Shown here is a 79-nucleotide RNA sequence from Myotis brandtii, a member of the family "mir-9186 microRNA precursor family".
Taxonomically the source falls in Myotis (Eukaryota, Opisthokonta, Teleostomi, Eutheria).
The family has 31 seed sequences and 143 matches in Rfam 15.1.
RNA sequence: AGGGGGAGGUUGGCAGCAUGUGUGGUACUGAGGUAAUGGCUGCCCUCAGUACCUGCCAUGCCGCUGCCCUCCCCCUACA
Numbered sequence: 001a002g003g004g005g006g007a008g009g010u011u012g013g014c015a016g017c018a019u020g021u022g023u024g025g026u027a028c029u030g031a032g033g034u035a036a037u038g039g040c041u042g043c044c045c046u047c048a049g050u051a052c053c054u055g056c057c058a059u060g061c062c063g064c065u066g067c068c069c070u071c072c073c074c075c076u077a078c079a
Stems, first nucleotide, its partner, number of pairs: 001076004006071004012065003016061004024053007